[Rfam]
RNA: Group II catalytic intron D1-D4-1
RNA sequence: UAACCUUACUUGUGAAAGUAAGCUGAACGUACAGAAGUCAGCAGACGCCAUAGUACGCUUUCGUGUUGCAACACGAGCGGAAGGGC
Numbered sequence: 001u002a003a004c005c006u007u008a009c010u011u012g013u014g015a016a017a018g019u020a021a022g023c024u025g026a027a028c029g030u031a032c033a034g035a036a037g038u039c040a041g042c043a044g045a046c047g048c049c050a051u052a053g054u055a056c057g058c059u060u061u062c063g064u065g066u067u068g069c070a071a072c073a074c075g076a077g078c079g080g081a082a083g084g085g086c
Stems, first nucleotide, its partner, number of pairs: 001025002005022007037046003047086003056079003062075002